[Rfam]
RNA sequence: UCCUUAUCUAGAGAAGCAGAGGGACUGGCCCGAUGAAGCUUCAGCAACCAGCAAUGCUUAUUUGCAAAGCAAGGUGCUAAAUCCUGCAGACAUUAGUCUGAAAGAUGAGGG
Numbered sequence: 001u002c003c004u005u006a007u008c009u010a011g012a013g014a015a016g017c018a019g020a021g022g023g024a025c026u027g028g029c030c031c032g033a034u035g036a037a038g039c040u041u042c043a044g045c046a047a048c049c050a051g052c053a054a055u056g057c058u059u060a061u062u063u064g065c066a067a068a069g070c071a072a073g074g075u076g077c078u079a080a081a082u083c084c085u086g087c088a089g090a091c092a093u094u095a096g097u098c099u100g101a102a103a104g105a106u107g108a109g110g111g
Stems, first nucleotide, its partner, number of pairs: 001111008013042005021031003025086001027084002043078004048074002051070002082103001087100005

The record is a 111-nucleotide RNA from Clostridium sp. HMP27, which matches "SAM riboswitch aptamer (S box leader)" in Rfam.
The family's consensus secondary structure is taken from published work.
The match comes from Rfam's covariance-model search (91 bits).